[Rfam]
RNA sequence: CCGUCUCUUGCUUCAACCGUGUUUGGACAGAAUAG
Numbered sequence: 001c002c003g004u005c006u007c008u009u010g011c012u013u014c015a016a017c018c019g020u021g022u023u024u025g026g027a028c029a030g031a032a033u034a035g
Base pairs, nucleotide, nucleotide: 001035003033004032006031007030008029010028012027013026014025015024016023017021